[Rfam]
RNA sequence: UGCCCGGUCUUUGCCCCGGAUCAACUUUCAAUAGUUGUGACGGUUUCCGACUUGGGAAAAGUGUUUGUGAGAUGUUGGAAUGGAUAAGAUUCAAUGAUCUGUCUUUCUGACAUCACUCGUACAUUU
Numbered sequence: 001u002g003c004c005c006g007g008u009c010u011u012u013g014c015c016c017c018g019g020a021u022c023a024a025c026u027u028u029c030a031a032u033a034g035u036u037g038u039g040a041c042g043g044u045u046u047c048c049g050a051c052u053u054g055g056g057a058a059a060a061g062u063g064u065u066u067g068u069g070a071g072a073u074g075u076u077g078g079a080a081u082g083g084a085u086a087a088g089a090u091u092c093a094a095u096g097a098u099c100u101g102u103c104u105u106u107c108u109g110a111c112a113u114c115a116c117u118c119g120u121a122c123a124u125u126u
Stems, first nucleotide, its partner, number of pairs: 003056004007051003016043003023036004068119004073112004077107003083099003087095001
Dot-bracket structure: ..(((((((......(((....((((......))))....))).....))).))))...........((((.(((((((...(((.(.......).))).....))).))))...)))).......
A member of the RNA family "Caenorhabditis snoRNA ceN43" from Caenorhabditis angaria, 126 nucleotides long. The family's RNA type in Rfam is H/ACA-box small nucleolar RNA. Lineage of the source: Eukaryota > Metazoa > Rhabditomorpha > Rhabditidae > Caenorhabditis.